RNA: MIR319 microRNA precursor family
Organism: Linum usitatissimum
RNA sequence: CAGAAAUGAGGGCUCCUUUCAGCCUAAAAACUACAGGUUUUCUCAGACAAGAUCCUGUUUCUUUUGGACUGAAGGGAGCUCCCAGUUCUU
Numbered sequence: 001c002a003g004a005a006a007u008g009a010g011g012g013c014u015c016c017u018u019u020c021a022g023c024c025u026a027a028a029a030a031c032u033a034c035a036g037g038u039u040u041u042c043u044c045a046g047a048c049a050a051g052a053u054c055c056u057g058u059u060u061c062u063u064u065u066g067g068a069c070u071g072a073a074g075g076g077a078g079c080u081c082c083c084a085g086u087u088c089u090u
Stems, first nucleotide, its partner, number of pairs: 007084002010081009021070002024067005